[Rfam]
MIR6217 microRNA precursor family: a 229-nucleotide sequence from Miscanthus lutarioriparius. Pairs were carried over by alignment from the consensus structure, which was predicted with RNAalifold.
RNA sequence: AUGCUACAAAAUAACUUAUUAUGUAGCCACUUUGAGUUACGAUAAUUACUAUGUUAAUUUACGAUAUUAUGGUAACUCCUUACUAAGUGAUUUACUAUAAUGUUAUGGUAAAUAUCUCCAUAUGGUAUAGUAACCUAACUAUCGUAAAUAUGUAUUGACAUUAUCAUAAAUUAGUAUAUAAAAUUAUUGUAAAUGAAGGUGGCUACAAAAUAACUUAUUUUUAUAGCUG
Numbered sequence: 001a002u003g004c005u006a007c008a009a010a011a012u013a014a015c016u017u018a019u020u021a022u023g024u025a026g027c028c029a030c031u032u033u034g035a036g037u038u039a040c041g042a043u044a045a046u047u048a049c050u051a052u053g054u055u056a057a058u059u060u061a062c063g064a065u066a067u068u069a070u071g072g073u074a075a076c077u078c079c080u081u082a083c084u085a086a087g088u089g090a091u092u093u094a095c096u097a098u099a100a101u102g103u104u105a106u107g108g109u110a111a112a113u114a115u116c117u118c119c120a121u122a123u124g125g126u127a128u129a130g131u132a133a134c135c136u137a138a139c140u141a142u143c144g145u146a147a148a149u150a151u152g153u154a155u156u157g158a159c160a161u162u163a164u165c166a167u168a169a170a171u172u173a174g175u176a177u178a179u180a181a182a183a184u185u186a187u188u189g190u191a192a193a194u195g196a197a198g199g200u201g202g203c204u205a206c207a208a209a210a211u212a213a214c215u216u217a218u219u220u221u222u223a224u225a226g227c228u229g
Base pairs, nucleotide, nucleotide: 003227004226005225006224008222009221010219011218012217013216014215016213017212018211019210020209022207023206024205025204026203027202028201029200030199031198032197033196037192038191039190040189041188042187043186044185045184046183047182050178051177052176053175054174055173056172057171058170059169060168061167066164067163069161070160071159074155080147081146082145083144087142088141089140091138092137093132094131095130096129097128098127099126101124102123103122107117108116